[Rfam]
RNA sequence: UUAUGGACAAAAUGCUUUCUUUUGUGAAUUAAGUCAAAACGAGCUUCUUGUCCAUAGGG
Numbered sequence: 001u002u003a004u005g006g007a008c009a010a011a012a013u014g015c016u017u018u019c020u021u022u023u024g025u026g027a028a029u030u031a032a033g034u035c036a037a038a039a040c041g042a043g044c045u046u047c048u049u050g051u052c053c054a055u056a057g058g059g
Stems, first nucleotide, its partner, number of pairs: 002056009012046001018041001020039005026034001
mir-7386 microRNA precursor family: a 59-nucleotide RNA sequence from Vombatus ursinus. It scores 49 bits against the family's covariance model. Pairs were carried over by alignment from the consensus structure, which was predicted with RNAalifold.